A member of the RNA family "MIR1120/MIR1122 microRNA precursor family" from Aegilops tauschii, 87 nucleotides long. Rfam links the family to the GO terms RISC complex and miRNA-mediated post-transcriptional gene silencing. A search with the family's covariance model found it, with a score of 89 bits. The organism belongs to Aegilops tauschii, within Eukaryota. A reference for the family is Yao et al. (2007), "Cloning and characterization of microRNAs from wheat (Triticum aestivum L.)", Genome Biol. Pairs were carried over by alignment from the consensus structure, which was predicted with RNAalifold.
[Rfam]
RNA sequence: CUACUCCCUCCGUCCCAAAAUAUAAGAGCAUUUUUUACACUAGUGUACUGUAAAAAACACUUUUAUAUUUUGGGACGGAGGGAGUAC
Dot-bracket structure: ..(((.(((((.(((((.((((((((((..(((((((((.(.....).)))))))))..)))))))))).))))).))))).)))..